[Rfam]
Nucleotides: 074
Base pairs, nucleotide, nucleotide: 003022004021005020006019007018009016010015053069054068055067056066057065058064
Number, partner (000 for none) and nucleotide at each position: 001000u002000a003022c004021g005020c006019c007018a008000u009016g010015c011000g012000u013000a014000g015010g016009u017000u018007u019006g020005g021004u022003g023000g024000a025000c026000g027000g028000g029000g030000a031000u032000u033000g034000u035000u036000g037000u038000c039000a040000a041000g042000a043000c044000u045000u046000c047000c048000a049000g050000u051000a052000a053069g054068a055067u056066u057065c058064u059000g060000a061000u062000a063000c064058a065057g066056a067055a068054u069053u070000u071000c072000u073000g074000g